The record is a 58-nucleotide sequence from Solicola gregarius, which matches "msiK RNA" in Rfam. Taxonomically the source falls in Solicola (Bacteria, Bacillati, Actinomycetota, Propionibacteriales). By type it is a cis-regulatory element. The base pairs follow the family's consensus structure, which is taken from published work. A search with the family's covariance model found it, with a score of 60 bits.
RNA sequence: GCGCAACACCCUCCACUCGGAUCGUCCGGCACGUACCUGCCGGUGAAGGGAAACAAGC
Numbered sequence: 001g002c003g004c005a006a007c008a009c010c011c012u013c014c015a016c017u018c019g020g021a022u023c024g025u026c027c028g029g030c031a032c033g034u035a036c037c038u039g040c041c042g043g044u045g046a047a048g049g050g051a052a053a054c055a056a057g058c
Base pairs, nucleotide, nucleotide: 009050010049011048012047014045015044026043027042028041029040030039031038